[Rfam]
Nucleotides: 138
Base pairs, nucleotide, nucleotide: 003058004057005056006055007054019041020040021039022038023037024036025035026034074131075130076129077128086118087117090113091111092110093109094108095107096106097105
Number, partner (000 for none) and nucleotide at each position: 001000a002000u003058g004057c005056a006055u007054g008000a009000c010000u011000g012000u013000u014000g015000u016000a017000g018000a019041u020040g021039c022038u023037c024036u025035c026034u027000c028000a029000c030000u031000g032000g033000u034026a035025g036024g037023g038022a039021g040020u041019a042000a043000a044000g045000u046000c047000a048000u049000g050000c051000a052000g053000c054007c055006a056005u057004g058003c059000u060000a061000g062000a063000u064000u065000a066000a067000c068000a069000u070000g071000u072000u073000u074131u075130g076129a077128g078000u079000c080000a081000u082000c083000a084000g085000g086118g087117c088000c089000a090113c091111c092110a093109g094108u095107c096106u097105g098000u099000c100000a101000a102000g103000a104000a105097c106096a107095g108094a109093c110092u111091g112000u113090g114000u115000u116000g117087g118086u119000a120000g121000u122000a123000u124000a125000u126000a127000a128077c129076u130075c131074a132000c133000a134000c135000a136000u137000u138000c
A member of the RNA family "Small nucleolar RNA U109" from Danio rerio, 138 nucleotides long.
Rfam 15.1 lists 1,405 matches to the family in 622 species.
The literature on the family includes a 2005 paper in Nucleic Acids Res by Gu et al., "A novel experimental approach for systematic identification of box H/ACA snoRNAs from eukaryotes".
By type it is an H/ACA-box small nucleolar RNA.
The base pairs follow the family's consensus structure, which was predicted with WAR.